[Rfam]
RNA sequence: UGGUUCCACGUACCUGCCAGGCAUGGAGCGGGGGACCCAGGUUCCUCGGCACCGCGACACGGCGGUGCCUCGGGGUGAAGCCGCAACCCGCGGCCGGGCCAGUACCCCUCGGCCCGAACCCGACAGCUCACCUCGUAGGCGUCGAGGGAGACAAC
Numbered sequence: 001u002g003g004u005u006c007c008a009c010g011u012a013c014c015u016g017c018c019a020g021g022c023a024u025g026g027a028g029c030g031g032g033g034g035a036c037c038c039a040g041g042u043u044c045c046u047c048g049g050c051a052c053c054g055c056g057a058c059a060c061g062g063c064g065g066u067g068c069c070u071c072g073g074g075g076u077g078a079a080g081c082c083g084c085a086a087c088c089c090g091c092g093g094c095c096g097g098g099c100c101a102g103u104a105c106c107c108c109u110c111g112g113c114c115c116g117a118a119c120c121c122g123a124c125a126g127c128u129c130a131c132c133u134c135g136u137a138g139g140c141g142u143c144g145a146g147g148g149a150g151a152c153a154a155c
Stems, first nucleotide, its partner, number of pairs: 001138001005027003028136006038072001073121003081093004096115004
Dot-bracket structure: (...(((.................)))((((((....(.................................)(((.....((((.....))))..((((............))))...))).........)))))).).................
Shown here is a 155-nucleotide sequence from Actinocatenispora sera, a member of the family "c-di-AMP riboswitch aptamer (ydaO/yuaA leader)". This family represents a conserved RNA structure found upstream of the ydaO and yuaA genes in Bacillus subtilis and related genes in other bacteria. A search with the family's covariance model found it, with a score of 59 bits. Pairs were carried over by alignment from the consensus structure. NCBI's taxonomy places the organism under Bacteria, Actinomycetota, Actinomycetes, Micromonosporales, Actinocatenispora.